[Rfam]
The record is a 625-nucleotide RNA sequence from Rhizoctonia solani, which matches "Nuclear RNase P" in Rfam. It is annotated as a ribozyme. NCBI's taxonomy places the organism under Eukaryota, Basidiomycota, Cantharellales, Ceratobasidiaceae, Rhizoctonia. The family is grouped with related families in Rfam's "RNaseP clan".
RNA sequence: AUAGCUCGAAAGCCGCAUUUGCUCGCCACGCACUCGCCGAUUCUCUCGGCUUUUCGCGAGCGGGCUAAGGUCUGAGCGUUCUAGUCCCCUUGUACUUGUGUCUAGCUGGCACGGACCGUAACAGGUCGAGCAGAGCAUCAGACAUGCGCUCUCUGCUGUUCGUAUCGCCCAGAGAUCCGCAAGGGGAGGGCAUAACACAGGUCGAGCUUGGAACCACUCUGCGGGGACGGAGCCGUUUCGUUAGCUUGUCCCGUUUUAACCUCUUUCCCACCCAAAGCGCUAGCGCCGAGAGCUAGUGCACGACUUCCGUUAGGGAGUUGAAAUCAUGCAUCUGCUUUGCGGUGUAUGAUCUGGCUGGCUUUCUGAGCCGACUGGACCAAGGAAGAAUAAGCUGGACACUUGCUGCAGUUAAUGCUCCAGUGCCUAAUAGCUGUUCUUGCCUCCUCUCUCUGCACUUGUGUUCGCCCAUGGCGGAGAUAAGCAGGCCACGUAUAUGGUGGUUCGGUUGGCUGUGGUGAUCGAGGAGGUUGGGACGAGGCCGGACGGCUCUUUAGUUCACUUUGCGGCUCGCUUGUAUUCGCUUUUGGCGAUUUGCGAAACUCGAUUCAGACUACUCUUGGGCUGU
Number, nucleotide and partner (000 for none) at each position: 001a625002u624003a623004g622005c000006u000007c619008g618009a617010a000011a000012g567013c566014c565015g564016c563017a562018u000019u000020u000021g061022c060023u059024c058025g057026c000027c000028a000029c000030g000031c000032a000033c000034u000035c000036g050037c049038c048039g047040a046041u000042u000043c000044u000045c000046u040047c039048g038049g037050c036051u000052u000053u000054u000055c000056g000057c025058g024059a023060g022061c021062g000063g000064g000065c000066u000067a000068a000069g000070g000071u000072c609073u608074g607075a606076g605077c000078g000079u000080u000081c000082u000083a000084g228085u227086c226087c225088c000089c000090u000091u000092g000093u000094a000095c000096u000097u000098g112099u111100g110101u109102c108103u000104a000105g000106c000107u000108g102109g101110c100111a099112c098113g000114g127115a126116c125117c124118g000119u000120a000121a000122c000123a000124g117125g116126u115127c114128g000129a000130g222131c221132a220133g219134a218135g217136c000137a000138u000139c000140a000141g000142a000143c000144a000145u000146g000147c000148g207149c206150u205151c000152u000153c000154u000155g000156c000157u000158g000159u000160u000161c000162g000163u000164a000165u000166c000167g000168c000169c000170c000171a000172g000173a000174g000175a000176u000177c000178c000179g000180c000181a000182a000183g000184g000185g000186g000187a000188g000189g000190g000191c000192a000193u000194a000195a000196c000197a000198c000199a000200g000201g000202u000203c000204g000205a150206g149207c148208u000209u000210g000211g000212a000213a000214c000215c000216a000217c135218u134219c133220u132221g131222c130223g000224g000225g087226g086227a085228c084229g000230g000231a000232g000233c000234c000235g000236u000237u000238u000239c000240g000241u000242u000243a000244g000245c000246u000247u000248g000249u000250c000251c000252c000253g000254u000255u000256u000257u000258a000259a000260c000261c000262u000263c000264u000265u000266u000267c000268c000269c000270a000271c000272c000273c000274a000275a000276a000277g000278c000279g000280c000281u000282a000283g000284c000285g000286c000287c000288g000289a000290g000291a000292g000293c000294u000295a000296g000297u000298g000299c000300a000301c000302g000303a000304c000305u000306u000307c000308c000309g000310u000311u000312a000313g000314g000315g000316a000317g000318u000319u000320g000321a000322a000323a000324u000325c000326a000327u000328g000329c000330a000331u000332c000333u000334g000335c000336u000337u000338u000339g000340c000341g000342g000343u000344g000345u000346a000347u000348g000349a000350u000351c000352u000353g000354g000355c000356u000357g000358g000359c000360u000361u000362u000363c000364u000365g000366a000367g000368c000369c000370g000371a000372c000373u000374g000375g000376a000377c000378c000379a000380a000381g000382g000383a000384a000385g000386a000387a000388u000389a000390a000391g000392c000393u000394g000395g000396a000397c000398a000399c000400u000401u000402g000403c000404u000405g000406c000407a000408g000409u000410u000411a000412a000413u000414g000415c000416u000417c000418c000419a000420g000421u000422g000423c000424c000425u000426a000427a000428u000429a000430g000431c000432u000433g000434u000435u000436c000437u000438u000439g000440c000441c000442u000443c000444c000445u000446c000447u000448c000449u000450c000451u000452g000453c000454a000455c000456u000457u000458g000459u000460g000461u000462u000463c000464g000465c000466c000467c000468a000469u000470g000471g000472c000473g000474g000475a000476g000477a000478u000479a000480a000481g000482c000483a000484g000485g000486c000487c000488a000489c000490g000491u000492a000493u000494a000495u000496g000497g000498u000499g000500g000501u000502u000503c000504g000505g000506u000507u000508g000509g000510c000511u000512g000513u000514g000515g000516u000517g000518a000519u000520c000521g000522a000523g000524g000525a000526g000527g000528u000529u000530g000531g000532g000533a000534c000535g000536a000537g000538g000539c000540c000541g000542g000543a000544c000545g000546g000547c000548u000549c000550u000551u000552u000553a000554g000555u000556u000557c000558a000559c000560u000561u000562u017563g016564c015565g014566g013567c012568u597569c596570g595571c594572u000573u000574g591575u000576a000577u000578u000579c000580g000581c000582u000583u000584u000585u000586g000587g000588c000589g000590a000591u574592u000593u000594g571595c570596g569597a568598a000599a000600c000601u000602c000603g000604a000605u076606u075607c074608a073609g072610a000611c000612u000613a000614c000615u000616c000617u009618u008619g007620g000621g000622c004623u003624g002625u001